[Rfam]
RNA sequence: CCUGCGCAUGCGGGAGAACCGGAUUUACCGGUGCCGAAGGAGCAACCGCCCCGGAAACUCUCAGGCCGAAGGGACCGCGGGCGUACA
Number, nucleotide and partner (000 for none) at each position: 001c000002c000003u000004g000005c000006g082007c081008a000009u079010g078011c077012g076013g075014g000015a000016g000017a000018a000019c031020c030021g029022g028023a000024u000025u000026u000027a000028c022029c021030g020031g019032u000033g066034c065035c064036g062037a061038a000039g000040g060041a059042g058043c000044a000045a000046c054047c053048g000049c000050c000051c000052c000053g047054g046055a000056a000057a000058c042059u041060c040061u037062c036063a000064g035065g034066c033067c000068g000069a000070a000071g000072g000073g000074a000075c013076c012077g011078c010079g009080g000081g007082c006083g000084u000085a000086c000087a000
Shown here is an 87-nucleotide RNA from Sedimentitalea nanhaiensis, a member of the family "Glycine riboswitch aptamer". It scores 56 bits against the family's covariance model.